[Rfam]
RNA sequence: GGUUGGGCAGCGAUGCUUUCAAGGUUUUUUCUUCAAAGGGCGGGAAGAA
Numbered sequence: 001g002g003u004u005g006g007g008c009a010g011c012g013a014u015g016c017u018u019u020c021a022a023g024g025u026u027u028u029u030u031c032u033u034c035a036a037a038g039g040g041c042g043g044g045a046a047g048a049a
Base pairs, nucleotide, nucleotide: 003022004021005020006017007016008015009014029049030048031047032046033045034044

Overview
Na+ riboswitch aptamer (DUF1646): a 49-nucleotide RNA from Vagococcus allomyrinae. The literature on the family includes a 2022 paper in Nat Chem Biol by White et al., "Na(+) riboswitches regulate genes for diverse physiological processes in bacteria". Taxonomically the source falls in Vagococcus (Bacteria, Bacillota, Bacilli, Lactobacillales). Gene Ontology terms of the family: sodium ion binding and regulation of gene expression.